[Rfam]
RNA: Tombusvirus 3' UTR region IV
RNA sequence: ACUUUGAGCACGGUUGAUCUCACCCUCCGGGGGGGCUAUAGAGAUCGCUGGAAACACUACCGGACAACCGGAACAUUGCAGAAAUGCAGCCC
Dot-bracket structure: ..........((((.((((((.(((....)))[[[.....)))))))))).........((((....))))....(((((....)))))]]]